[Rfam]
RNA: Fluoride riboswitch aptamer (crcB RNA motif)
RNA sequence: GGCGGGAAAGGAGAUGGCAUGCCUCCGGUUCCACCUCGGAACAAACCGCCCCGAUGUCAUCAAACAGGGGCUGAUGAUGCCUGCACCACC
Number, nucleotide and partner (000 for none) at each position: 001g000002g000003c000004g000005g000006g000007a000008a000009a000010g026011g025012a024013g023014a000015u000016g081017g080018c079019a078020u077021g000022c000023c013024u012025c011026c010027g000028g000029u000030u000031c000032c000033a000034c000035c000036u000037c000038g000039g000040a000041a000042c000043a000044a000045a000046c000047c000048g071049c070050c069051c068052c000053g000054a000055u000056g000057u000058c000059a000060u000061c000062a000063a000064a000065c000066a000067g000068g051069g050070g049071c048072u000073g000074a000075u000076g000077a020078u019079g018080c017081c016082u000083g000084c000085a000086c000087c000088a000089c000090c000